[Rfam]
RNA sequence: CUUGGGGCAGGGGAUCCCUCAGUCUGGAUUGUGAGAGGGUGCAGGCCAGGCCAAGGGACCCCACCAGUGCACA
Numbered sequence: 001c002u003u004g005g006g007g008c009a010g011g012g013g014a015u016c017c018c019u020c021a022g023u024c025u026g027g028a029u030u031g032u033g034a035g036a037g038g039g040u041g042c043a044g045g046c047c048a049g050g051c052c053a054a055g056g057g058a059c060c061c062c063a064c065c066a067g068u069g070c071a072c073a
Base pairs, nucleotide, nucleotide: 003071004070006068011062012061013060015058016057017056018055019054022051023050024049026047027046029044030043031042032041033040

The family of this 73-nucleotide RNA sequence from Myotis lucifugus is "mir-9193 microRNA precursor family". It scores 61 bits against the family's covariance model. NCBI's taxonomy places the organism under Eukaryota, Metazoa, Boreoeutheria, Vespertilionidae, Myotis.